[Rfam]
RNA: L31-Actinobacteria ribosomal protein leader
Organism: Mycobacterium sp. UM_WWY
RNA sequence: UCGGUCCCGGUUCACGUCCACAGGGGCGACCCGGGCC
Number, nucleotide and partner (000 for none) at each position: 001u000002c000003g037004g036005u035006c000007c034008c033009g032010g031011u000012u000013c000014a000015c028016g027017u026018c025019c024020a000021c000022a000023g000024g019025g018026g017027c016028g015029a000030c000031c010032c009033g008034g007035g005036c004037c003